Rfam assigns this 65-nucleotide sequence to the family "pemK RNA".
[Rfam]
RNA sequence: AUAAUGAUACUUCUACAGUUGUUGCCGGCUCAUCUGGAAAAGAGGCGGAGGUGAAAUUCCUAUGU
Numbered sequence: 001a002u003a004a005u006g007a008u009a010c011u012u013c014u015a016c017a018g019u020u021g022u023u024g025c026c027g028g029c030u031c032a033u034c035u036g037g038a039a040a041a042g043a044g045g046c047g048g049a050g051g052u053g054a055a056a057u058u059c060c061u062a063u064g065u
Stems, first nucleotide, its partner, number of pairs: 012062001013024001015022002025048003029044003049061003